[Rfam]
RNA sequence: CCAAAUAUUGGGCAAACUUAUCGAAAGGUAAGGACGCAAAGCUAUGGGUCUAAGGAAUUUUUAUUCUAUGACCGCCAAGCUGCCGAU
Number, nucleotide and partner (000 for none) at each position: 001c000002c000003a000004a000005a000006u000007a000008u000009u000010g000011g000012g037013c036014a000015a000016a000017c032018u031019u030020a029021u028022c027023g000024a000025a000026a000027g022028g021029u020030a019031a018032g017033g000034a000035c000036g013037c012038a000039a000040a081041g080042c079043u078044a000045u077046g076047g075048g072049u071050c070051u000052a000053a000054g000055g066056a065057a064058u063059u000060u000061u000062u000063a058064u057065u056066c055067u000068a000069u000070g050071a049072c048073c000074g000075c047076c046077a045078a043079g042080c041081u040082g000083c000084c000085g000086a000087u000
A member of the RNA family "c-di-GMP-I riboswitch aptamer" from Pelosinus sp. UFO1, 87 nucleotides long. Rfam links the family to the GO term cyclic-di-GMP binding. The base pairs follow the family's consensus structure, which is taken from published work. The source organism's lineage runs through Bacteria, Bacillati, Negativicutes, Sporomusaceae and Pelosinus. GEMM was predicted in a large-scale screen for bacterial structured RNA regulatory elements. Genes associated with GEMM are involved in a diverse array of functions, including chemotaxis regulation, signal transduction, secretion and chitin.